[Rfam]
RNA sequence: GUUUGUGUGUGUGUGGAUAGAGUUCAGCAUGAAAAACAUGCAUAUUGUGUGUAUUUGGAUAGCGUUCAGCACUAAGGACAGGCAUAUUGUAUG
Numbered sequence: 001g002u003u004u005g006u007g008u009g010u011g012u013g014u015g016g017a018u019a020g021a022g023u024u025c026a027g028c029a030u031g032a033a034a035a036a037c038a039u040g041c042a043u044a045u046u047g048u049g050u051g052u053a054u055u056u057g058g059a060u061a062g063c064g065u066u067c068a069g070c071a072c073u074a075a076g077g078a079c080a081g082g083c084a085u086a087u088u089g090u091a092u093g
Stems, first nucleotide, its partner, number of pairs: 004084003008080003018074003022070003026066003030062001032060001034054001036052007
The record is a 93-nucleotide sequence from Branchiostoma belcheri, which matches "mir-2060 microRNA precursor family" in Rfam. Its family is annotated with RISC complex and miRNA-mediated post-transcriptional gene silencing in the Gene Ontology. The family has 7 seed sequences and 3,696 matches in Rfam 15.1. The match comes from Rfam's covariance-model search (55 bits).